A member of the RNA family "SAM riboswitch aptamer (S box leader)" from Viridibacillus arenosi, 96 nucleotides long. A search with the family's covariance model found it, with a score of 84 bits.

RNA sequence: UUCUUAUCCAGAGAGGUGGAGGGACUGGCCCUAUGAAAUCUCAGCAACGGACGAUGUACCGUGCUAAUUCCAGAAGCGUAUGCUUGAAGAUAAGAA
Numbered sequence: 001u002u003c004u005u006a007u008c009c010a011g012a013g014a015g016g017u018g019g020a021g022g023g024a025c026u027g028g029c030c031c032u033a034u035g036a037a038a039u040c041u042c043a044g045c046a047a048c049g050g051a052c053g054a055u056g057u058a059c060c061g062u063g064c065u066a067a068u069u070c071c072a073g074a075a076g077c078g079u080a081u082g083c084u085u086g087a088a089g090a091u092a093a094g095a096a
Stems, first nucleotide, its partner, number of pairs: 001096008013042005021031003025073004043065004048061002050057001052056001069088001074085004